mir-10 microRNA precursor family: a 70-nucleotide RNA sequence from Rattus norvegicus. The match comes from Rfam's covariance-model search (69 bits). Gene Ontology terms of the family: miRNA-mediated post-transcriptional gene silencing and RISC complex. The literature on the family includes a 2001 paper in Science by Lee and Ambros, "An extensive class of small RNAs in Caenorhabditis elegans". Pairs were carried over by alignment from the consensus structure, which was predicted with PFOLD.
RNA sequence: UGCCACAAACCCGUAGAUCCGAACUUGUGCUGACCAUGCACACAAGCUUGUGUCUAUAGGUAUGUGUCUG
Numbered sequence: 001u002g003c004c005a006c007a008a009a010c011c012c013g014u015a016g017a018u019c020c021g022a023a024c025u026u027g028u029g030c031u032g033a034c035c036a037u038g039c040a041c042a043c044a045a046g047c048u049u050g051u052g053u054c055u056a057u058a059g060g061u062a063u064g065u066g067u068c069u070g
Base pairs, nucleotide, nucleotide: 002068004066005065006064007063010060011059015055016054017053018052020050021049022048024046025045026044027043028042029041